RNA: Mammalian CPEB3 ribozyme
RNA sequence: ACUUGUGAUUAGGGGACCAUAGCAGAAGUGUUAACAUGCACCCCUUGUCAGGUAAUACCUGUGAAUUCUGCU
Dot-bracket structure: ............[[[.....(((((((((........))...]]]...(((((...)))))....)))))))